[Rfam]
RNA sequence: AACUAAAUAAGUGAAGGUGCUCACUUAAACUGCUCAAUUAUUUGAGAUAAUGGCUCCUAUUUAACA
Numbered sequence: 001a002a003c004u005a006a007a008u009a010a011g012u013g014a015a016g017g018u019g020c021u022c023a024c025u026u027a028a029a030c031u032g033c034u035c036a037a038u039u040a041u042u043u044g045a046g047a048u049a050a051u052g053g054c055u056c057c058u059a060u061u062u063a064a065c066a
Stems, first nucleotide, its partner, number of pairs: 010025004016057002019054003033046003

The family of this 66-nucleotide RNA from Halanaerobium hydrogeniformans is "Fluoride riboswitch aptamer (crcB RNA motif)". The base pairs follow the family's consensus structure, which is taken from published work. The match comes from Rfam's covariance-model search (35 bits). Lineage of the source: Bacteria > Bacillati > Clostridia > Halanaerobiaceae > Halanaerobium.